Record summary:
drum RNA: a 110-nucleotide RNA sequence. Pairs were carried over by alignment from the consensus structure, which is taken from published work. Rfam's curators put it in the seed alignment. Rfam describes the family as follows. Firmicutes, Bacteroidetes (1 example), Proteobacteria (2 examples), Spirochaetes (2 examples). By type it is a small RNA.
RNA sequence: AAGUGAUGAAGUGGCUGUUUAUUCGAGUGAGUACGCCAUGGAGCUUAACGGAAGGUUGCAUAUCAGCCUUGACUCGAAUAGACUAACAAGUUGAAAGAAAAAUGUGACUA
Numbered sequence: 001a002a003g004u005g006a007u008g009a010a011g012u013g014g015c016u017g018u019u020u021a022u023u024c025g026a027g028u029g030a031g032u033a034c035g036c037c038a039u040g041g042a043g044c045u046u047a048a049c050g051g052a053a054g055g056u057u058g059c060a061u062a063u064c065a066g067c068c069u070u071g072a073c074u075c076g077a078a079u080a081g082a083c084u085a086a087c088a089a090g091u092u093g094a095a096a097g098a099a100a101a102a103u104g105u106g107a108c109u110a
Stems, first nucleotide, its partner, number of pairs: 001046004011039005016033006023077004060105003081092004